RNA sequence: ACGUGAGGGGCAUCUUGAGGGCUGUCUAACCUGAGAAUGGUGAAACUUAAGGCUCAAUCUCAGGUUCGUCAGCCCACGAGAUGCCUUCUCCAG
Numbered sequence: 001a002c003g004u005g006a007g008g009g010g011c012a013u014c015u016u017g018a019g020g021g022c023u024g025u026c027u028a029a030c031c032u033g034a035g036a037a038u039g040g041u042g043a044a045a046c047u048u049a050a051g052g053c054u055c056a057a058u059c060u061c062a063g064g065u066u067c068g069u070c071a072g073c074c075c076a077c078g079a080g081a082u083g084c085c086u087u088c089u090c091c092a093g
Base pairs, nucleotide, nucleotide: 005090006089007088008086009085010084011083012082013081014080015079016078019075020074022072023071024070026068028066029065030064031063032062033061034060035059036058038056039055
This 93-nucleotide sequence from Indicator maculatus belongs to the Rfam family "mir-1388 microRNA precursor family". Gene Ontology terms of the family: miRNA-mediated post-transcriptional gene silencing and RISC complex. Lineage of the source: Eukaryota > Chordata > Sauria > Piciformes > Indicator. A reference for the family is Soares et al. (2009), "Parallel DNA pyrosequencing unveils new zebrafish microRNAs", BMC Genomics.